[Rfam]
The record is a 78-nucleotide sequence from Crocodylus porosus, which matches "Mammalian CPEB3 ribozyme" in Rfam. It scores 47 bits against the family's covariance model. Gene Ontology term of the family: RNA nuclease activity.
RNA sequence: AGUUGCAAAUUCAAGGCCGUAGCAGAAGCACUCAUAGCACGGCCCUUGUCAAAUUCCAGUGAAUCUGUGAAUUCUGGU
Numbered sequence: 001a002g003u004u005g006c007a008a009a010u011u012c013a014a015g016g017c018c019g020u021a022g023c024a025g026a027a028g029c030a031c032u033c034a035u036a037g038c039a040c041g042g043c044c045c046u047u048g049u050c051a052a053a054u055u056c057c058a059g060u061g062a063a064u065c066u067g068u069g070a071a072u073u074c075u076g077g078u
Stems, first nucleotide, its partner, number of pairs: 013046001015044004021078001023076005028040001050067002053064004